L17 ribosomal protein downstream element: a 76-nucleotide RNA from Lactiplantibacillus kimchii. It scores 45 bits against the family's covariance model. Rfam classes the family as a cis-regulatory element.

[Rfam]
RNA sequence: CGGACGUUAUGAUGGUGGUUACCUAAUUUGGUAACUAAGUCUAGUUCGGAAGUUAUUUAUGUUAAACAUAGAUGGC
Numbered sequence: 001c002g003g004a005c006g007u008u009a010u011g012a013u014g015g016u017g018g019u020u021a022c023c024u025a026a027u028u029u030g031g032u033a034a035c036u037a038a039g040u041c042u043a044g045u046u047c048g049g050a051a052g053u054u055a056u057u058u059a060u061g062u063u064a065a066a067c068a069u070a071g072a073u074g075g076c
Stems, first nucleotide, its partner, number of pairs: 002047004011041003017036006052076009